This 92-nucleotide RNA sequence from Diaphorina citri belongs to the Rfam family "Small nucleolar RNA snR60/Z15/Z230/Z193/J17".
NCBI's taxonomy places the organism under Eukaryota, Eumetazoa, Pancrustacea, Psyllidae, Diaphorina.
RNA sequence: AGGGUUGGAAUGAUGACUUCAUAGUUCACAUGAGACUCAUAUGAUUAUUAUUACUAUAGCAUUAUGUCUUUCGCUCCUAUCUGACCAACCCU
Dot-bracket structure: ...(((((............................................................................)))))...